[Rfam]
RNA sequence: CUCUCCGAAAUAGCUUUAGGGCUAGCCUCGAGACACUACGCACCGGGGGUAGAGAGACUGAAUUGGCAUGGGGGCCUUCGCCGGCUGCCCAGCCGAACCAAACUCCGAAUACCGGUGCGACUAUCUCGGGAGUCAGUCCCUGGGGGAUAAGCUCCAGGGUCGAGAGGGAAACAACCCGGACCACCAGCUAAGGUCCCUAAGUAAGGCUCAGUCACAAAGGAAGUGGGGUUGCUGAGACAGCCAGGAUGUUGGCUUAGAAGCAGCCACCAUUUAAAAAGUGCGUAAAAGCUUACUGGUCGAGCAACCCUGCGCCGAAAAUGAACGGGAGUAAGCCUUACACCGAAGCUGUGGGCUACGCUACGCGUAGCGGUAGGAGAGCGCUGUAGAGCAGAUACAGGCCGCUUCGUGAGGAGCGGUGGCGGGCUCUACAGGUGAUUAU
Numbered sequence: 001c002u003c004u005c006c007g008a009a010a011u012a013g014c015u016u017u018a019g020g021g022c023u024a025g026c027c028u029c030g031a032g033a034c035a036c037u038a039c040g041c042a043c044c045g046g047g048g049g050u051a052g053a054g055a056g057a058c059u060g061a062a063u064u065g066g067c068a069u070g071g072g073g074g075c076c077u078u079c080g081c082c083g084g085c086u087g088c089c090c091a092g093c094c095g096a097a098c099c100a101a102a103c104u105c106c107g108a109a110u111a112c113c114g115g116u117g118c119g120a121c122u123a124u125c126u127c128g129g130g131a132g133u134c135a136g137u138c139c140c141u142g143g144g145g146g147a148u149a150a151g152c153u154c155c156a157g158g159g160u161c162g163a164g165a166g167g168g169a170a171a172c173a174a175c176c177c178g179g180a181c182c183a184c185c186a187g188c189u190a191a192g193g194u195c196c197c198u199a200a201g202u203a204a205g206g207c208u209c210a211g212u213c214a215c216a217a218a219g220g221a222a223g224u225g226g227g228g229u230u231g232c233u234g235a236g237a238c239a240g241c242c243a244g245g246a247u248g249u250u251g252g253c254u255u256a257g258a259a260g261c262a263g264c265c266a267c268c269a270u271u272u273a274a275a276a277a278g279u280g281c282g283u284a285a286a287a288g289c290u291u292a293c294u295g296g297u298c299g300a301g302c303a304a305c306c307c308u309g310c311g312c313c314g315a316a317a318a319u320g321a322a323c324g325g326g327a328g329u330a331a332g333c334c335u336u337a338c339a340c341c342g343a344a345g346c347u348g349u350g351g352g353c354u355a356c357g358c359u360a361c362g363c364g365u366a367g368c369g370g371u372a373g374g375a376g377a378g379c380g381c382u383g384u385a386g387a388g389c390a391g392a393u394a395c396a397g398g399c400c401g402c403u404u405c406g407u408g409a410g411g412a413g414c415g416g417u418g419g420c421g422g423g424c425u426c427u428a429c430a431g432g433u434g435a436u437u438a439u
Stems, first nucleotide, its partner, number of pairs: 001378006011024005026132001027130007037123001039119008052106001053104002059100002063096004070089002073086004136161001138159008166177003181351004186347003192341003201338007219313002223310010240297005246270003251265003271275001276291001280289002352368007379434001381431009398417008
Dot-bracket structure: ((((((....(((((....))))).((((((((...(.((((((((.....(((....((..((((...((.((((......)))).))...))))..))..)).).....))))))))...)))))))).)...(.((((((((......)))))))).)....(((......)))...((((.(((...(((......(((((((...........((..((((((((((.......(((((.(((..(((.........)))..)))(...)(...((......)).).)))))...)))))))))).))..................))))))))))...)))))))(((((((...)))))))....))))))(.(((((((((........((((((((....)))))))).....)))))))))..).....

The record is a 439-nucleotide part of an RNA from Thermogutta terrifontis, which matches "Bacterial large subunit ribosomal RNA" in Rfam. It scores 2771 bits against the family's covariance model. Taxonomically the source falls in Thermogutta (Bacteria, Pseudomonadati, Planctomycetota, Planctomycetia).